Source information:
Shown here is a 191-nucleotide RNA from Anaeromyxobacter dehalogenans, a member of the family "6S / SsrS RNA". The family's consensus secondary structure is taken from published work.
RNA sequence: UACCCCCUGCCGGGCUCGUGAUUGGCCUUGCGUCGUUUGGGCCGACUUUGUCCAAAGCGGAGUGCCCGCCCACGUCCAUGAGCAAGCUCCCUGAAGCGAGGGAGAAGCCUACGGACGCUGGCGUACCGGGUGCCCCACCUGUAGAAAUACAGGUUCAAACAACCGGGCCACACGGCCCACGCGGGGGGCUU
Numbered sequence: 001u002a003c004c005c006c007c008u009g010c011c012g013g014g015c016u017c018g019u020g021a022u023u024g025g026c027c028u029u030g031c032g033u034c035g036u037u038u039g040g041g042c043c044g045a046c047u048u049u050g051u052c053c054a055a056a057g058c059g060g061a062g063u064g065c066c067c068g069c070c071c072a073c074g075u076c077c078a079u080g081a082g083c084a085a086g087c088u089c090c091c092u093g094a095a096g097c098g099a100g101g102g103a104g105a106a107g108c109c110u111a112c113g114g115a116c117g118c119u120g121g122c123g124u125a126c127c128g129g130g131u132g133c134c135c136c137a138c139c140u141g142u143a144g145a146a147a148u149a150c151a152g153g154u155u156c157a158a159a160c161a162a163c164c165g166g167g168c169c170a171c172a173c174g175g176c177c178c179a180c181g182c183g184g185g186g187g188g189c190u191u
Base pairs, nucleotide, nucleotide: 003188004187005186006185007184008183009182010181012178013177014176015175017174018173019172033162035160036159038157039156040155041154042153043152059136060135062134064131065130066129067128068127073117074116075115076114082108083107087104088103089102090101091100
The literature on the family includes a 2000 paper in Cell by Wassarman and Storz, "6S RNA regulates E. coli RNA polymerase activity". E. coli 6S RNA was the first non coding RNA to be sequenced, but its function was unknown until recently. A search with the family's covariance model found it, with a score of 63 bits. By type it is a non-coding RNA gene.